[Rfam]
RNA: L4-Archaeoglobi ribosomal protein leades
RNA sequence: CUGACCGCGACGCAUGGGUGGACGUUUAAAAAACGAGCCUGGUUCCCUGAAUCAUCAGGGAAUGCGUCAGUGUCAG
Numbered sequence: 001c002u003g004a005c006c007g008c009g010a011c012g013c014a015u016g017g018g019u020g021g022a023c024g025u026u027u028a029a030a031a032a033a034c035g036a037g038c039c040u041g042g043u044u045c046c047c048u049g050a051a052u053c054a055u056c057a058g059g060g061a062a063u064g065c066g067u068c069a070g071u072g073u074c075a076g
Base pairs, nucleotide, nucleotide: 001076002075003074004073005072009068010067011066012065013064015041016040017039018038023035024034025033026032027031043062044061045060046059047058048057049056050055